Rfam assigns this 111-nucleotide RNA from Arcticibacter svalbardensis to the family "SAM riboswitch aptamer (S box leader)". Taxonomically the source falls in Arcticibacter svalbardensis (Bacteria, Pseudomonadati, Sphingobacteriia, Sphingobacteriaceae). Pairs were carried over by alignment from the consensus structure, which is taken from published work. About the family: The SAM riboswitch is found upstream of a number of genes which code for proteins involved in methionine or cysteine biosynthesis in Gram-positive bacteria.

[Rfam]
RNA sequence: GAUUUAUAAAGAAGCGGUGAGAGAUCAGGCUCAACGACCCGCUGACAACCUUCCAAUUGUGGAAAAGGUGCCAACUCCUGUUUCAGCCAAUUGGCUGGAAACAUAUAAAUU
Numbered sequence: 001g002a003u004u005u006a007u008a009a010a011g012a013a014g015c016g017g018u019g020a021g022a023g024a025u026c027a028g029g030c031u032c033a034a035c036g037a038c039c040c041g042c043u044g045a046c047a048a049c050c051u052u053c054c055a056a057u058u059g060u061g062g063a064a065a066a067g068g069u070g071c072c073a074a075c076u077c078c079u080g081u082u083u084c085a086g087c088c089a090a091u092u093g094g095c096u097g098g099a100a101a102c103a104u105a106u107a108a109a110u111u
Stems, first nucleotide, its partner, number of pairs: 001111008013043005021032003026080004044072001046070002049068002051064004076103001081100006